[Rfam]
RNA sequence: GCGUGGGUCGGCCCGCUGUCCAGGACAGUGGGCUGGGGGACACCGCCGUCUACAUCCCCGCGGGCGGCGGACCGGUCCGGGGGGCGCGUCCCGCCUCCCGGACUGCG
Numbered sequence: 001g002c003g004u005g006g007g008u009c010g011g012c013c014c015g016c017u018g019u020c021c022a023g024g025a026c027a028g029u030g031g032g033c034u035g036g037g038g039g040a041c042a043c044c045g046c047c048g049u050c051u052a053c054a055u056c057c058c059c060g061c062g063g064g065c066g067g068c069g070g071a072c073c074g075g076u077c078c079g080g081g082g083g084g085c086g087c088g089u090c091c092c093g094c095c096u097c098c099c100g101g102a103c104u105g106c107g
Stems, first nucleotide, its partner, number of pairs: 001106002006073003009035010036041001043070009053060001074104013
RNA: Streptomyces RNA 4115
Organism: Streptomyces tagetis